[Rfam]
RNA sequence: AUAAAAAAAACCUGCAACCAACUGUUGCAGGUUCUUUUUAUUUUCUAUCAGAAAAUAAAAAGAAAAGGGAGAGGAGAAACCGGAGGAAGAACUUAUGGGGAAAUGUAAGUCUUCUCCGAAU
Numbered sequence: 001a002u003a004a005a006a007a008a009a010a011c012c013u014g015c016a017a018c019c020a021a022c023u024g025u026u027g028c029a030g031g032u033u034c035u036u037u038u039u040a041u042u043u044u045c046u047a048u049c050a051g052a053a054a055a056u057a058a059a060a061a062g063a064a065a066a067g068g069g070a071g072a073g074g075a076g077a078a079a080c081c082g083g084a085g086g087a088a089g090a091a092c093u094u095a096u097g098g099g100g101a102a103a104u105g106u107a108a109g110u111c112u113u114c115u116c117c118g119a120a121u
Base pairs, nucleotide, nucleotide: 011031012030013029014028015027016026017025018024032069033068034067035066036065041057043055044054081118082117083116084115086114087113088112089111091110092109093108094107095106